RNA: Small nucleolar RNA SNORD34
Organism: Strongylocentrotus purpuratus
RNA sequence: CCUGUCAGUGAUGAAUUAUAUCAUCCUACCUACAUUGUUUGAUUGAAGAUGAGAAUAAGCAUGAUUCUGAGACAGG
Number, nucleotide and partner (000 for none) at each position: 001c076002c000003u074004g073005u072006c071007a000008g000009u000010g000011a000012u000013g000014a000015a000016u000017u000018a000019u000020a000021u000022c000023a000024u000025c000026c000027u000028a000029c000030c000031u000032a000033c000034a000035u000036u000037g000038u000039u000040u000041g000042a000043u000044u000045g000046a000047a000048g000049a000050u000051g000052a000053g000054a000055a000056u000057a000058a000059g000060c000061a000062u000063g000064a000065u000066u000067c000068u000069g000070a000071g006072a005073c004074a003075g000076g001